[Rfam]
Source information: A member of the RNA family "Small nucleolar RNA SNORA11" from Erinaceus europaeus, 126 nucleotides long. By type it is an H/ACA-box small nucleolar RNA.
RNA sequence: UUGGGCUACUGUUAUGGCAGGGGACCUGCUGAGUGGCUGCUCUCUUUACACCAUCUCAACCAAGAGUCUGGGUUCACUGACAAGGGGCACAAGACUUGUGGCUUUCCUGUGGGAGCACACACACAC
Number, nucleotide and partner (000 for none) at each position: 001u000002u058003g057004g056005g055006c000007u053008a000009c000010u000011g000012u000013u000014a000015u000016g046017g045018c000019a043020g042021g041022g040023g000024a000025c036026c035027u000028g000029c000030u000031g000032a000033g000034u000035g026036g025037c000038u000039g000040c022041u021042c020043u019044c000045u017046u016047u000048a000049c000050a000051c000052c000053a007054u000055c005056u004057c003058a002059a000060c000061c000062a000063a000064g000065a000066g000067u000068c000069u000070g000071g000072g120073u119074u000075c000076a000077c000078u113079g000080a000081c111082a110083a000084g104085g103086g102087g000088c100089a099090c098091a097092a096093g000094a000095c000096u092097u091098g090099u089100g088101g000102c086103u085104u084105u000106c000107c000108u000109g000110u082111g081112g000113g078114a000115g000116c000117a000118c000119a073120c072121a000122c000123a000124c000125a000126c000
The match comes from Rfam's covariance-model search (38 bits). The organism belongs to Erinaceus, within Eukaryota. The literature on the family includes a 2005 paper in Nucleic Acids Res by Gu et al., "A novel experimental approach for systematic identification of box H/ACA snoRNAs from eukaryotes". Rfam describes the family as follows. U107 (SNORA11) is a member of the H/ACA class of snoRNAs that guide the sites of modification of uridines to pseudouridines. This snoRNA was identified by RT-PCR from blood cells and its expression confirmed by Northern blot analysis. There is no predicted target for this guide snRNA.